[Rfam]
RNA sequence: UUUGAUCGCCCCGAGCCACAGCGGCCGCUCCCGCCCCUGCCCAUAGGUCGCCAGCAACGCCUGCGCCUC
Numbered sequence: 001u002u003u004g005a006u007c008g009c010c011c012c013g014a015g016c017c018a019c020a021g022c023g024g025c026c027g028c029u030c031c032c033g034c035c036c037c038u039g040c041c042c043a044u045a046g047g048u049c050g051c052c053a054g055c056a057a058c059g060c061c062u063g064c065g066c067c068u069c
Base pairs, nucleotide, nucleotide: 015025016024017023030063032059033058037054038053039052041050043048